[Rfam]
RNA sequence: CACUCCUAUUUCUGCCCUCCAUCUUGCAUUAGCGAUAAGAUGCACAGGUCUUGUUUACGGAGAAGAUCAAGCCCGUUAUUGACCUCUCAGAUUUGAUACUUCAGAGUGUGUUAAUGCCGGGAUCGUUCCUUGAGUUCAUCUUUGUGUUCGUCAUUCCUGCAAUGCGGGAUUGGAGACAUGAACUCAGGAUACAAUU
Number, nucleotide and partner (000 for none) at each position: 001c000002a000003c062004u061005c060006c059007u000008a000009u000010u000011u000012c000013u000014g000015c000016c048017c047018u046019c000020c042021a041022u040023c039024u038025u037026g000027c000028a000029u000030u000031a000032g000033c000034g000035a000036u000037a025038a024039g023040a022041u021042g020043c000044a000045c000046a018047g017048g016049u000050c000051u000052u000053g000054u000055u000056u000057a000058c000059g006060g005061a004062g003063a000064a000065g000066a000067u000068c000069a000070a000071g000072c121073c120074c119075g118076u000077u116078a115079u114080u113081g112082a111083c110084c108085u000086c106087u000088c104089a000090g000091a000092u000093u000094u000095g000096a000097u000098a000099c000100u000101u000102c000103a000104g088105a000106g086107u000108g084109u000110g083111u082112u081113a080114a079115u078116g077117c000118c075119g074120g073121g072122a000123u000124c000125g000126u000127u189128c188129c187130u186131u000132g000133a184134g183135u182136u181137c180138a000139u000140c000141u000142u000143u000144g000145u000146g000147u175148u174149c173150g000151u172152c000153a000154u169155u000156c168157c167158u166159g165160c164161a000162a000163u000164g160165c159166g158167g157168g156169a154170u000171u000172g151173g149174a148175g147176a000177c000178a000179u000180g137181a136182a135183c134184u133185c000186a130187g129188g128189a127190u000191a000192c000193a000194a000195u000196u000
Small nucleolar RNA snR43: a 196-nucleotide RNA from Pichia inconspicua. It is annotated as an H/ACA-box small nucleolar RNA. Pairs were carried over by alignment from the consensus structure, which is taken from published work. A search with the family's covariance model found it, with a score of 94 bits. The organism belongs to Pichia, within Eukaryota.